Rfam assigns this 111-nucleotide RNA from Oceanobacillus bengalensis to the family "SAM riboswitch aptamer (S box leader)". It scores 91 bits against the family's covariance model.
[Rfam]
RNA sequence: CUCUUAUCAAGAGCGGUGGAGGGACUGGCCUUAUGAUACCGCGGCAACCUUCAAACUUAGGUUUGAAAAAGGUGCUAAUUCCAGCAGAGCAAUGCUUCUGAAAGAUGAGAG
Numbered sequence: 001c002u003c004u005u006a007u008c009a010a011g012a013g014c015g016g017u018g019g020a021g022g023g024a025c026u027g028g029c030c031u032u033a034u035g036a037u038a039c040c041g042c043g044g045c046a047a048c049c050u051u052c053a054a055a056c057u058u059a060g061g062u063u064u065g066a067a068a069a070a071g072g073u074g075c076u077a078a079u080u081c082c083a084g085c086a087g088a089g090c091a092a093u094g095c096u097u098c099u100g101a102a103a104g105a106u107g108a109g110a111g
Base pairs, nucleotide, nucleotide: 001111002110003109004108005107006106007105008104013042014041015040016039017038021031022030023029025084026083027082028081043076044075045074046073048072049071050067051066052065053064080103085100086099087098088097089096